Description:
Arthropod 7SK RNA: a 262-nucleotide RNA from Brassicogethes aeneus. The base pairs follow the family's consensus structure, which is taken from published work. The source organism's lineage runs through Eukaryota, Opisthokonta, Eumetazoa, Coleoptera and Brassicogethes.
RNA sequence: GGAGGUGUGCGUCUGUGAUGGCACAGCUGAGCAUUGAUCGUUCCAUACGUUUAGAGUGGGGCUGAUCUGCUCAGUUACGGUGACGUCACGUGGUCGAUCCAGCAACCAUCUGUUCAAGCCGAUGCCUUGUCGCACGGCCGAUCACUGGUUUCUUGAGCGUCCGAAAUUUCCAAAUUUCAAGGGGUUUACCGGAUGGGUUUCAUUUAGAUUUGCACCUCCAAACAACGGCGCUGCGGAACAAAGUAGUCUGCCCUUUUUUGUU
Numbered sequence: 001g002g003a004g005g006u007g008u009g010c011g012u013c014u015g016u017g018a019u020g021g022c023a024c025a026g027c028u029g030a031g032c033a034u035u036g037a038u039c040g041u042u043c044c045a046u047a048c049g050u051u052u053a054g055a056g057u058g059g060g061g062c063u064g065a066u067c068u069g070c071u072c073a074g075u076u077a078c079g080g081u082g083a084c085g086u087c088a089c090g091u092g093g094u095c096g097a098u099c100c101a102g103c104a105a106c107c108a109u110c111u112g113u114u115c116a117a118g119c120c121g122a123u124g125c126c127u128u129g130u131c132g133c134a135c136g137g138c139c140g141a142u143c144a145c146u147g148g149u150u151u152c153u154u155g156a157g158c159g160u161c162c163g164a165a166a167u168u169u170c171c172a173a174a175u176u177u178c179a180a181g182g183g184g185u186u187u188a189c190c191g192g193a194u195g196g197g198u199u200u201c202a203u204u205u206a207g208a209u210u211u212g213c214a215c216c217u218c219c220a221a222a223c224a225a226c227g228g229c230g231c232u233g234c235g236g237a238a239c240a241a242a243g244u245a246g247u248c249u250g251c252c253c254u255u256u257u258u259u260g261u262u
Stems, first nucleotide, its partner, number of pairs: 001219008015089005027074003031070003036067004040062004046056001227252003230247005

The literature on the family includes a 2008 paper in Mol Biol Evol by Gruber et al., "Arthropod 7SK RNA".